[Rfam]
Nucleotides: 314
Base pairs, nucleotide, nucleotide: 001310002309003308004307005306006305007304008303009302010301011299013262014261015260016259017258018257019256021039022038023037024036025035026034027033028032044297045296046295048294049293050292051291052290053163054162055161056160060197061196062195063194065159066158067157068156069155070084071083072082073081074080085099086097087096088095089094100154101153105152106151107148108147122136123135124134125133126132127131167219168218169217170216178209179208180207181206182205189201190200191199192198226245227244228243229242230241231240232239233238
Number, partner (000 for none) and nucleotide at each position: 001310a002309a003308a004307g005306c006305a007304a008303a009302u010301c011299a012000a013262c014261c015260u016259u017258g018257u019256u020000g021039c022038u023037u024036u025035c026034a027033u028032u029000u030000u031000u032028a033027a034026u035025g036024a037023a038022a039021g040000a041000g042000g043000a044297a045296a046295g047000u048294c049293c050292g051291g052290a053163c054162a055161c056160c057000a058000u059000a060197g061196g062195a063194u064000a065159u066158c067157a068156c069155a070084g071083c072082g073081g074080g075000u076000a077000a078000c079000g080074c081073c082072c083071g084070u085099c086097c087096a088095c089094u090000g091000u092000a093000a094089a095088g096087u097086g098000a099085g100154g101153a102000c103000a104000a105152g106151u107148g108147c109000a110000a111000c112000a113000g114000a115000a116000a117000g118000c119000a120000a121000g122136u123135a124134c125133a126132g127131u128000u129000a130000g131127g132126c133125u134124g135123u136122a137000g138000u139000g140000a141000a142000a143000u144000c145000a146000g147108g148107u149000a150000a151106a152105c153101u154100c155069u156068g157067u158066g159065a160056g161055g162054u163053g164000c165000a166000a167219u168218g169217c170216u171000a172000u173000g174000u175000a176000u177000a178209c179208c180207g181206a182205c183000u184000u185000a186000u187000a188000a189201g190200g191199g192198u193000u194063a195062u196061c197060c198192g199191u200190c201189c202000g203000a204000u205182g206181u207180c208179g209178g210000g211000g212000g213000g214000u215000a216170a217169g218168c219167a220000g221000u222000u223000u224000g225000a226245a227244g228243u229242a230241a231240g232239a233238a234000g235000u236000a237000a238233u239232u240231c241230u242229u243228a244227u245226u246000c247000u248000a249000g250000a251000u252000a253000a254000a255000u256019a257018a258017c259016a260015g261014g262013g263000c264000u265000u266000u267000u268000u269000c270000a271000g272000a273000a274000c275000u276000g277000a278000a279000a280000a281000a282000u283000g284000a285000c286000a287000g288000a289000a290052u291051c292050c293049g294048g295046c296045u297044u298000a299011u300000u301010g302009a303008u304007u305006u306005g307004c308003u309002u310001u311000u312000u313000u314000c